[Rfam]
RNA sequence: CCCCCAAGGGGAAGCGAAGACCCUAUGGAGCUUUACUGCAGGCUGUCGCUGAGACACGGUCGCUAGUGUGCAGGAUAGGUAGGAGCCGUUACACAGGUACCCGCGCUAGCGGGCCACCGAGGCACACGUGAAAUACUACCCACUAGUGACUGUGACUCUCACUCCUGGCGGAGGACACCGGUAGCCGGGCAGUUUGACUGGGGCGGUACGCGCUUGAGAGAAGAUCGAGCGCGCCCCAUGAUUAUCUCAGCCGGGUCAGAAAUCCGGCGCAGAGUGCAAGAGCACAAGAUAGUCUGACAGUGUCCAGCCUAACGAUGGACGCUGACGCGAAAGCGGGGUCUAGCGAACCAAUCAUGGUCCUCAAUGGGCCAGAUUGAUGACAGAAAAGCUACCCUAGGGAUAACAGAGUCGUCACCCGCAAGAGCACAUAUCGACCGGGUGGCUUGCUACCUCGAUGUCGGUUCCCUCCAUCCUGCCCGUGCAGAAGCGGGCAAGGGUGAGGUUGUUCGCCUAUUAAAGGAGGUCGUGAGCUGGGUUUAGACCGUCGUGAGACAGGUCGGCUGCUAUCUAUUGGGGGUGUUU
Numbered sequence: 001c002c003c004c005c006a007a008g009g010g011g012a013a014g015c016g017a018a019g020a021c022c023c024u025a026u027g028g029a030g031c032u033u034u035a036c037u038g039c040a041g042g043c044u045g046u047c048g049c050u051g052a053g054a055c056a057c058g059g060u061c062g063c064u065a066g067u068g069u070g071c072a073g074g075a076u077a078g079g080u081a082g083g084a085g086c087c088g089u090u091a092c093a094c095a096g097g098u099a100c101c102c103g104c105g106c107u108a109g110c111g112g113g114c115c116a117c118c119g120a121g122g123c124a125c126a127c128g129u130g131a132a133a134u135a136c137u138a139c140c141c142a143c144u145a146g147u148g149a150c151u152g153u154g155a156c157u158c159u160c161a162c163u164c165c166u167g168g169c170g171g172a173g174g175a176c177a178c179c180g181g182u183a184g185c186c187g188g189g190c191a192g193u194u195u196g197a198c199u200g201g202g203g204c205g206g207u208a209c210g211c212g213c214u215u216g217a218g219a220g221a222a223g224a225u226c227g228a229g230c231g232c233g234c235c236c237c238a239u240g241a242u243u244a245u246c247u248c249a250g251c252c253g254g255g256u257c258a259g260a261a262a263u264c265c266g267g268c269g270c271a272g273a274g275u276g277c278a279a280g281a282g283c284a285c286a287a288g289a290u291a292g293u294c295u296g297a298c299a300g301u302g303u304c305c306a307g308c309c310u311a312a313c314g315a316u317g318g319a320c321g322c323u324g325a326c327g328c329g330a331a332a333g334c335g336g337g338g339u340c341u342a343g344c345g346a347a348c349c350a351a352u353c354a355u356g357g358u359c360c361u362c363a364a365u366g367g368g369c370c371a372g373a374u375u376g377a378u379g380a381c382a383g384a385a386a387a388g389c390u391a392c393c394c395u396a397g398g399g400a401u402a403a404c405a406g407a408g409u410c411g412u413c414a415c416c417c418g419c420a421a422g423a424g425c426a427c428a429u430a431u432c433g434a435c436c437g438g439g440u441g442g443c444u445u446g447c448u449a450c451c452u453c454g455a456u457g458u459c460g461g462u463u464c465c466c467u468c469c470a471u472c473c474u475g476c477c478c479g480u481g482c483a484g485a486a487g488c489g490g491g492c493a494a495g496g497g498u499g500a501g502g503u504u505g506u507u508c509g510c511c512u513a514u515u516a517a518a519g520g521a522g523g524u525c526g527u528g529a530g531c532u533g534g535g536u537u538u539a540g541a542c543c544g545u546c547g548u549g550a551g552a553c554a555g556g557u558c559g560g561c562u563g564c565u566a567u568c569u570a571u572u573g574g575g576g577g578u579g580u581u582u
Base pairs, nucleotide, nucleotide: 001577002576003575004574005573006572007571010569011568012567014564015563022398023397024396025395027394028393029390030389031388032387033386035193036192037191038190042185043184044183045182046181047180048179051158052157053156055154056153057152058151059150060149061148062147063146064145065144066143067142068141078140079139080138081137082136085123086122087121100113101112102111103110104109162173163172164171165170196209197207198206199205210232211231212230213229214228215227235338236337241293242292243291244290245289246288247273248272250268251267252266253265254264255263274283275282298324299323300322301321302320303319304318305317306316326335328333349376350375351374352373353372355371356370357369358368359367407448408447409446411445412442413441414440415439416438417437418436422432423431459534460532461531462530463529464526465523466522467521468520469519472497473496476491477490478489479488480487500512501511502510503509540558541557542556543555544553545552546551
This 582-nucleotide part of an RNA from Natranaeroarchaeum sulfidigenes belongs to the Rfam family "Archaeal large subunit ribosomal RNA". On this family, see Yusupov et al., Science 2001: "Crystal structure of the ribosome at 5.5 A resolution".